A member of the RNA family "Glycine riboswitch aptamer" from Chelatococcus reniformis, 99 nucleotides long.
[Rfam]
RNA sequence: AUGAUCCUCGCGGGAGAGUUCGUGGCGGGCCAGUCCCGUGCGACGCCGAAGGCGCAACCACCCCGGAAACGCUCAGGUCCAAUGGACCGCGCAGGAGCU
Numbered sequence: 001a002u003g004a005u006c007c008u009c010g011c012g013g014g015a016g017a018g019u020u021c022g023u024g025g026c027g028g029g030c031c032a033g034u035c036c037c038g039u040g041c042g043a044c045g046c047c048g049a050a051g052g053c054g055c056a057a058c059c060a061c062c063c064c065g066g067a068a069a070c071g072c073u074c075a076g077g078u079c080c081a082a083u084g085g086a087c088c089g090c091g092c093a094g095g096a097g098c099u
Base pairs, nucleotide, nucleotide: 006094009091010090011089012088013087020043021042022041023040045078046077047076048074049073052072053071054070058066059065